The record is an 87-nucleotide RNA from Phytoactinopolyspora alkaliphila, which matches "ZMP/ZTP riboswitch aptamer (pfl RNA motif)" in Rfam. The family's consensus secondary structure is taken from published work. Lineage of the source: Bacteria > Bacillati > Jiangellales > Jiangellaceae > Phytoactinopolyspora. A search with the family's covariance model found it, with a score of 57 bits.
RNA sequence: UGGUGCCGUCGUGACUGGCGCAGGGUGGAUCACCACCGGGGAGCGACACCAGCAGCAGACAUCGGGUCGGACGCCUGGGCCCGUGUC
Number, nucleotide and partner (000 for none) at each position: 001u000002g000003g000004u051005g050006c000007c000008g047009u046010c045011g044012u043013g000014a000015c040016u039017g075018g074019c073020g072021c000022a000023g000024g000025g036026u035027g034028g033029a000030u000031c000032a000033c028034c027035a026036c025037c000038g000039g016040g015041g000042a000043g012044c011045g010046a009047c008048a000049c000050c005051a004052g000053c000054a000055g000056c000057a000058g000059a000060c000061a000062u000063c000064g082065g081066g080067u079068c078069g000070g000071a000072c020073g019074c018075c017076u000077g000078g068079g067080c066081c065082c064083g000084u000085g000086u000087c000